[Rfam]
RNA sequence: AGUAGUAGUAAAUACUUUAAUAAGAACUUAAAGGACUAAAGUAAGGAAAGGUUUUAUAUAAAUAGUAGUUAAAUAUAGGUUAGUUAAUCCUAAGCUAUAGGGAAGUUUUGUUUUAAAGGUAUACUUAUAUGCUAUCUAGUAAAAGGGAAGCUAGUUAAUAUUCUAGUACCUAGAUAUAGGUUUUAUGUAGUAAUAUAACUAAACGUGGAGAUAAUAGUAAGGGCCUUAAGUAAAGUUCUCUUUUUUUCUUAAUAGUCUCUUACUCUAAAAUUAGUUUAUCUAGAGAUAGAGUUUAAUAGCUAGAAAAGCCUAGCACUUUUGCUAGGUUUAGUGUGCUCCUAAUAUCCCUUAAAAAUCUAUAGGAAGGAAUAAUUCUUAUGCUAAGUUAUACUUAUAACUAUAGUAAGUCUCUAAGGUAAAUAGCCUCUAGUUAA
Numbered sequence: 001a002g003u004a005g006u007a008g009u010a011a012a013u014a015c016u017u018u019a020a021u022a023a024g025a026a027c028u029u030a031a032a033g034g035a036c037u038a039a040a041g042u043a044a045g046g047a048a049a050g051g052u053u054u055u056a057u058a059u060a061a062a063u064a065g066u067a068g069u070u071a072a073a074u075a076u077a078g079g080u081u082a083g084u085u086a087a088u089c090c091u092a093a094g095c096u097a098u099a100g101g102g103a104a105g106u107u108u109u110g111u112u113u114u115a116a117a118g119g120u121a122u123a124c125u126u127a128u129a130u131g132c133u134a135u136c137u138a139g140u141a142a143a144a145g146g147g148a149a150g151c152u153a154g155u156u157a158a159u160a161u162u163c164u165a166g167u168a169c170c171u172a173g174a175u176a177u178a179g180g181u182u183u184u185a186u187g188u189a190g191u192a193a194u195a196u197a198a199c200u201a202a203a204c205g206u207g208g209a210g211a212u213a214a215u216a217g218u219a220a221g222g223g224c225c226u227u228a229a230g231u232a233a234a235g236u237u238c239u240c241u242u243u244u245u246u247u248c249u250u251a252a253u254a255g256u257c258u259c260u261u262a263c264u265c266u267a268a269a270a271u272u273a274g275u276u277u278a279u280c281u282a283g284a285g286a287u288a289g290a291g292u293u294u295a296a297u298a299g300c301u302a303g304a305a306a307a308g309c310c311u312a313g314c315a316c317u318u319u320u321g322c323u324a325g326g327u328u329u330a331g332u333g334u335g336c337u338c339c340u341a342a343u344a345u346c347c348c349u350u351a352a353a354a355a356u357c358u359a360u361a362g363g364a365a366g367g368a369a370u371a372a373u374u375c376u377u378a379u380g381c382u383a384a385g386u387u388a389u390a391c392u393u394a395u396a397a398c399u400a401u402a403g404u405a406a407g408u409c410u411c412u413a414a415g416g417u418a419a420a421u422a423g424c425c426u427c428u429a430g431u432u433a434a
Stems, first nucleotide, its partner, number of pairs: 015033006034432004043412001045410002049392002054078006063071002085388003089146002094140002097111002100109003119132003150167005171383003175380005180374001186197004205360005214345003218341002221338004226331003229249002232246003253302004262292006271283004309326007398407002414426004
RNA: Eukaryotic large subunit ribosomal RNA, nucleotides 1426 to 1859